[Rfam]
RNA: Small nucleolar RNA SNORD103/SNORD85
Organism: Pelusios castaneus
RNA sequence: UCUGGCGAUGAUGAGACACUUGCCCUCACUGAGAACACUGUUCAAUAAUGAAAAUUUCACUAUGUACUCAGAGGAGCUGAGCCAGA
Numbered sequence: 001u002c003u004g005g006c007g008a009u010g011a012u013g014a015g016a017c018a019c020u021u022g023c024c025c026u027c028a029c030u031g032a033g034a035a036c037a038c039u040g041u042u043c044a045a046u047a048a049u050g051a052a053a054a055u056u057u058c059a060c061u062a063u064g065u066a067c068u069c070a071g072a073g074g075a076g077c078u079g080a081g082c083c084a085g086a
Stems, first nucleotide, its partner, number of pairs: 001086006